[Rfam]
This 78-nucleotide RNA sequence from Turnix velox belongs to the Rfam family "mir-96 microRNA precursor family". The base pairs follow the family's consensus structure, which was predicted with RNAalifold. Lineage of the source: Eukaryota > Euteleostomi > Dipnotetrapodomorpha > Tetrapoda > Turnix. For this family Rfam cites "miRNPs: a novel class of ribonucleoproteins containing numerous microRNAs" (Mourelatos et al., Genes Dev, 2002).
RNA sequence: UGGCCCUUUUUGGCACUAGCACAUUUUUGCUUUGCUUGAUAGUCUUGGAGCAAUUAUGUGUAGUGCCAAUAUGGGACA
Numbered sequence: 001u002g003g004c005c006c007u008u009u010u011u012g013g014c015a016c017u018a019g020c021a022c023a024u025u026u027u028u029g030c031u032u033u034g035c036u037u038g039a040u041a042g043u044c045u046u047g048g049a050g051c052a053a054u055u056a057u058g059u060g061u062a063g064u065g066c067c068a069a070u071a072u073g074g075g076a077c078a
Base pairs, nucleotide, nucleotide: 004075005074006073008071010069011068012067013066014065015064016063017062019061020060021059022058023057024056027053028052029051030050031049032048